This 96-nucleotide RNA from Sapajus apella belongs to the Rfam family "mir-544 microRNA precursor family". It scores 68 bits against the family's covariance model.

RNA sequence: AUCUCACGGAAAACUUGUUAAAAUGCAGAUUCUCAUUCAAUGUCUGGGAUGGGGCUUGAGAUUCUGCAUUUGUAACAAGUUCUCAGGUGAUACUGC
Numbered sequence: 001a002u003c004u005c006a007c008g009g010a011a012a013a014c015u016u017g018u019u020a021a022a023a024u025g026c027a028g029a030u031u032c033u034c035a036u037u038c039a040a041u042g043u044c045u046g047g048g049a050u051g052g053g054g055c056u057u058g059a060g061a062u063u064c065u066g067c068a069u070u071u072g073u074a075a076c077a078a079g080u081u082c083u084c085a086g087g088u089g090a091u092a093c094u095g096c
Stems, first nucleotide, its partner, number of pairs: 003089001005087001009083001011081001014079007021071003025067005031061005